RNA sequence: CGGGCCGAGAGGCGUUGCAACGGGUCCGCGCGGCCCGCCACGCUCGGCGAGAUCCCAAGGACGCCUUCCGAAA
Numbered sequence: 001c002g003g004g005c006c007g008a009g010a011g012g013c014g015u016u017g018c019a020a021c022g023g024g025u026c027c028g029c030g031c032g033g034c035c036c037g038c039c040a041c042g043c044u045c046g047g048c049g050a051g052a053u054c055c056c057a058a059g060g061a062c063g064c065c066u067u068c069c070g071a072a073a
Stems, first nucleotide, its partner, number of pairs: 004048005021037006

This 73-nucleotide RNA from Nocardioides pocheonensis belongs to the Rfam family "SAH (S-adenosyl-L-homocysteine) riboswitch aptamer". Gene Ontology terms of the family: S-adenosylhomocysteine metabolic process and regulation of gene expression. The family's consensus secondary structure is taken from published work. It scores 40 bits against the family's covariance model. NCBI's taxonomy places the organism under Bacteria, Bacillati, Actinomycetes, Propionibacteriales, Nocardioides.